[Rfam]
The record is an 87-nucleotide RNA from Oryzias latipes, which matches "mir-22 microRNA precursor family" in Rfam. The organism belongs to Oryzias, within Eukaryota. The sequence is in the family's curated seed alignment.
RNA sequence: AGCUGACACACAGCUGUUCUUCACUGGCAAGCUUUAUGUUUCUAUACACAUGCUAAAGCUGCCAGCUGAAGAACUGCUCUGGUCAGC
Number, nucleotide and partner (000 for none) at each position: 001a000002g000003c000004u000005g084006a083007c082008a000009c000010a080011c000012a078013g000014c000015u000016g000017u073018u072019c071020u070021u069022c068023a000024c000025u000026g063027g062028c061029a000030a060031g059032c058033u057034u056035u055036a054037u000038g000039u000040u000041u000042c000043u000044a000045u000046a000047c000048a000049c000050a000051u000052g000053c000054u036055a035056a034057a033058g032059c031060u030061g028062c027063c026064a000065g000066c000067u000068g022069a021070a020071g019072a018073a017074c000075u000076g000077c000078u012079c000080u010081g000082g007083u006084c005085a000086g000087c000